RNA sequence: AAUCCCUAUGAAGAAUUAAUCCCAGAAAUAAAUUAAAAGUAGUGGACCGAUUUAUUUCCACUGACGAAUUUCCAAUUCCGAGGGAUG
Numbered sequence: 001a002a003u004c005c006c007u008a009u010g011a012a013g014a015a016u017u018a019a020u021c022c023c024a025g026a027a028a029u030a031a032a033u034u035a036a037a038a039g040u041a042g043u044g045g046a047c048c049g050a051u052u053u054a055u056u057u058c059c060a061c062u063g064a065c066g067a068a069u070u071u072c073c074a075a076u077u078c079c080g081a082g083g084g085a086u087g
Stems, first nucleotide, its partner, number of pairs: 002086005

Rfam assigns this 87-nucleotide RNA from Theobroma umbraticum to the family "Small nucleolar RNA R21". The family's consensus secondary structure was predicted with PFOLD. NCBI's taxonomy places the organism under Eukaryota, eudicotyledons, rosids, Malvaceae, Theobroma. It scores 60 bits against the family's covariance model.